[Rfam]
RNA: TPP riboswitch aptamer (THI element)
Organism: Lachnospiraceae bacterium AM48-27BH
RNA sequence: AAAGAAAGACAGGGGAGCCGAAUAUCCGGCUGAGAGGAAAUCAGAUUUCGACCCUUAGACCUGAUGUGGAUUAUGCCACCGUAGGAAGGACUUUAACAUACGCCU
Numbered sequence: 001a002a003a004g005a006a007a008g009a010c011a012g013g014g015g016a017g018c019c020g021a022a023u024a025u026c027c028g029g030c031u032g033a034g035a036g037g038a039a040a041u042c043a044g045a046u047u048u049c050g051a052c053c054c055u056u057a058g059a060c061c062u063g064a065u066g067u068g069g070a071u072u073a074u075g076c077c078a079c080c081g082u083a084g085g086a087a088g089g090a091c092u093u094u095a096a097c098a099u100a101c102g103c104c105u
Stems, first nucleotide, its partner, number of pairs: 006093003010089001011055004017030004037049005060085004066079004